RNA sequence: UUGCUCCUAUCUUGGCGCUUUCAUUGGUGAAUAUGGCUGUGUAUGUUAUAGGAGCAAAAGUAGUGCCUACGGGCUUUCGGAUCUCCUUCGGUGUUGGUCUUGAAUUUCGACCAAUGUCAUCCUCUGGGUUCGAGACAAUU
Dot-bracket structure: ..((((((((....((((..((((........))))..)))).....)))))))).........(((....))).(((((((((.....((..((((((.........))))))..)).......)))))))))......